RAGATH-21 RNA: an 86-nucleotide RNA.
RNA sequence: GAUGCGUGUCCUUAAUAGAAAAUGCAGUGUUUAGCUAACACAAGACGCAUGAGGUUGAAAAGCGGAUGCAAUUUCCGGCACGUAUC
Number, nucleotide and partner (000 for none) at each position: 001g086002a085003u084004g083005c082006g081007u080008g079009u078010c077011c000012u000013u000014a000015a000016u000017a000018g000019a000020a000021a000022a050023u049024g048025c047026a000027g000028u000029g000030u000031u000032u000033a000034g000035c000036u000037a000038a000039c000040a000041c000042a000043a000044g000045a000046c000047g025048c024049a023050u022051g000052a000053g000054g063055u062056u061057g000058a000059a000060a000061a056062g055063c054064g076065g075066a074067u000068g000069c000070a000071a000072u000073u000074u066075c065076c064077g010078g009079c008080a007081c006082g005083u004084a003085u002086c001
Rfam classes the family as a small RNA.